[Rfam]
RNA sequence: UCCGGAUCAAUGAUCCAUCCGUAAUCGGCGUUAUCUUUCUGUAGCUCCUUUGAAGGAUUUGAAGAUGAUGCUUAUCUACUGAGAUCUGGU
Numbered sequence: 001u002c003c004g005g006a007u008c009a010a011u012g013a014u015c016c017a018u019c020c021g022u023a024a025u026c027g028g029c030g031u032u033a034u035c036u037u038u039c040u041g042u043a044g045c046u047c048c049u050u051u052g053a054a055g056g057a058u059u060u061g062a063a064g065a066u067g068a069u070g071c072u073u074a075u076c077u078a079c080u081g082a083g084a085u086c087u088g089g090u
Base pairs, nucleotide, nucleotide: 002089003088004087005086006085007084
This 90-nucleotide sequence from Elaeis guineensis belongs to the Rfam family "Small nucleolar RNA snoR27". The family has 6 seed sequences and 649 matches in Rfam 15.1. Its Rfam clan is "snR68 clan". The literature on the family includes a 2001 paper in RNA by Brown et al., "Multiple snoRNA gene clusters from Arabidopsis".